Rfam assigns this 450-nucleotide part of an RNA from Haloarchaeobius iranensis to the family "Archaeal large subunit ribosomal RNA". Taxonomically the source falls in Haloarchaeobius (Archaea, Methanobacteriati, Halobacteria, Halorubellaceae). The match comes from Rfam's covariance-model search (2816 bits). The family is grouped with related families in Rfam's "LSU clan". On this family, see Cannone et al., BMC Bioinformatics 2002: "The comparative RNA web (CRW) site: an online database of comparative sequence and structure information for ribosomal, intron, and other RNAs".
RNA sequence: CCAGUCGAAACAUGUCGAAGCAUGACCUCUGCUGAGGUAGCUCGUGGGGUAGAGCGACCGAUUGGGAGACCCGCCAUCGAGAGAUGUCGGCCUCCCUGUCAAACUCCGAACCUACGAGCGCCACAGACGCAGGGAGUCCGGUGUGCGGGGUAAGCCUGUGCACCAUGAGGGAGACAACCCAGAGCUGGGUUAAGGUCCCAAAGUAUGGAUUAAGUGCAACCGAAGGUAGUCUCGAGCCCUAAACAGCCGGGAGGUGAGCUUAGAAGCAGCUACCCUCUAAGAAAAGCGUAACAGCUUACCGGCCGAGGUUCGAGGCGCCGAAAAUGAUCGGGGCUCAAAUCCAUCACCGAGACCUGGCGACACCCCCCAUAGGGGUGAUUCCGUAGACUGGCGCUCCAGUCGGGUGGAAGCACGGACGAGAGUUCGUGUGGACCGACUGGUGACGAUAAU
Numbered sequence: 001c002c003a004g005u006c007g008a009a010a011c012a013u014g015u016c017g018a019a020g021c022a023u024g025a026c027c028u029c030u031g032c033u034g035a036g037g038u039a040g041c042u043c044g045u046g047g048g049g050u051a052g053a054g055c056g057a058c059c060g061a062u063u064g065g066g067a068g069a070c071c072c073g074c075c076a077u078c079g080a081g082a083g084a085u086g087u088c089g090g091c092c093u094c095c096c097u098g099u100c101a102a103a104c105u106c107c108g109a110a111c112c113u114a115c116g117a118g119c120g121c122c123a124c125a126g127a128c129g130c131a132g133g134g135a136g137u138c139c140g141g142u143g144u145g146c147g148g149g150g151u152a153a154g155c156c157u158g159u160g161c162a163c164c165a166u167g168a169g170g171g172a173g174a175c176a177a178c179c180c181a182g183a184g185c186u187g188g189g190u191u192a193a194g195g196u197c198c199c200a201a202a203g204u205a206u207g208g209a210u211u212a213a214g215u216g217c218a219a220c221c222g223a224a225g226g227u228a229g230u231c232u233c234g235a236g237c238c239c240u241a242a243a244c245a246g247c248c249g250g251g252a253g254g255u256g257a258g259c260u261u262a263g264a265a266g267c268a269g270c271u272a273c274c275c276u277c278u279a280a281g282a283a284a285a286g287c288g289u290a291a292c293a294g295c296u297u298a299c300c301g302g303c304c305g306a307g308g309u310u311c312g313a314g315g316c317g318c319c320g321a322a323a324a325u326g327a328u329c330g331g332g333g334c335u336c337a338a339a340u341c342c343a344u345c346a347c348c349g350a351g352a353c354c355u356g357g358c359g360a361c362a363c364c365c366c367c368c369a370u371a372g373g374g375g376u377g378a379u380u381c382c383g384u385a386g387a388c389u390g391g392c393g394c395u396c397c398a399g400u401c402g403g404g405u406g407g408a409a410g411c412a413c414g415g416a417c418g419a420g421a422g423u424u425c426g427u428g429u430g431g432a433c434c435g436a437c438u439g440g441u442g443a444c445g446a447u448a449a450u
Stems, first nucleotide, its partner, number of pairs: 001391006011024005026136001027134006036122003040119008052107001053105002060100003064096005073088001075086004140164009169180003184358007194348003203345001205344006225319003229316010246303005252276003257271003277281001282297001286295002359381002361377005392445001394442001396440008410429008